[Rfam]
RNA sequence: UGAGUAUCUGCCGUCCCACUCCACUUCAUGGGCGGCGGACAAAAAGAAGGAGGAAGUGAAAUCCCCGGGCUCGGGGUGCGGCAGUGUGGAGACCUGUCGUAAAGCCUCGUCCGUGUCAACCGGAGAGGCGAGGGCAUCCCUGGCGGAGGCCGGAUGUCCGGAGCCUGAAUUAUGGCA
Numbered sequence: 001u002g003a004g005u006a007u008c009u010g011c012c013g014u015c016c017c018a019c020u021c022c023a024c025u026u027c028a029u030g031g032g033c034g035g036c037g038g039a040c041a042a043a044a045a046g047a048a049g050g051a052g053g054a055a056g057u058g059a060a061a062u063c064c065c066c067g068g069g070c071u072c073g074g075g076g077u078g079c080g081g082c083a084g085u086g087u088g089g090a091g092a093c094c095u096g097u098c099g100u101a102a103a104g105c106c107u108c109g110u111c112c113g114u115g116u117c118a119a120c121c122g123g124a125g126a127g128g129c130g131a132g133g134g135c136a137u138c139c140c141u142g143g144c145g146g147a148g149g150c151c152g153g154a155u156g157u158c159c160g161g162a163g164c165c166u167g168a169a170u171u172a173u174g175g176c177a
Base pairs, nucleotide, nucleotide: 007039008038009037010036011035012034013033015032016031017030018029063076064075065074066073067166068165069164070163071162072161077101078100079099080098081097082096083095084094086093087092104129105128106127107126108125110124111123112122132159133158134157135156136155137154138153139152142151143150144149